[Rfam]
Background
mir-544 microRNA precursor family: an 86-nucleotide RNA sequence from Equus caballus. On this family, see Chiang et al., Genes Dev 2010: "Mammalian microRNAs: experimental evaluation of novel and previously annotated genes". The organism belongs to Equus, within Eukaryota. The base pairs follow the family's consensus structure, which was predicted with RNAalifold. A search with the family's covariance model found it, with a score of 72 bits.
Nucleotides: 086
Base pairs, nucleotide, nucleotide: 003079004078005077009073010072011071014069015068016067017066019064020063021061022060023059026056027055028054029053031051032050033049
Number, partner (000 for none) and nucleotide at each position: 001000a002000u003079c004078a005077u006000c007000u008000g009073g010072g011071g012000c013000u014069c015068u016067u017066g018000c019064u020063a021061a022060a023059g024000u025000a026056c027055a028054g029053a030000a031051u032050c033049u034000g035000a036000u037000u038000c039000a040000g041000u042000g043000g044000g045000a046000c047000c048000c049033a050032g051031a052000u053029u054028c055027u056026g057000c058000a059023u060022u061021u062000c063020u064019a065000c066017c067016a068015a069014g070000c071011u072010c073009c074000c075000a076000g077005g078004u079003g080000a081000u082000g083000u084000u085000g086000a